Rfam assigns this 66-nucleotide sequence from Xenopus tropicalis to the family "mir-29 microRNA precursor family". A reference for the family is Ambros (2001), "microRNAs: tiny regulators with great potential", Cell. From the family's description: This family represents the microRNA (miRNA) precursors mir-29. Rfam 15.1 lists 3,328 matches to the family in 787 species.
RNA sequence: GGAUGACUGAUUUCUUCUGGUGUUCAGAGUCUUUUGUUUUCUAGCACCAUUUGAAAUCGGUUAUAA
Numbered sequence: 001g002g003a004u005g006a007c008u009g010a011u012u013u014c015u016u017c018u019g020g021u022g023u024u025c026a027g028a029g030u031c032u033u034u035u036g037u038u039u040u041c042u043a044g045c046a047c048c049a050u051u052u053g054a055a056a057u058c059g060g061u062u063a064u065a066a
Stems, first nucleotide, its partner, number of pairs: 003064002005061001007060008018049005026042003

The base pairs follow the family's consensus structure, which was predicted with PFOLD.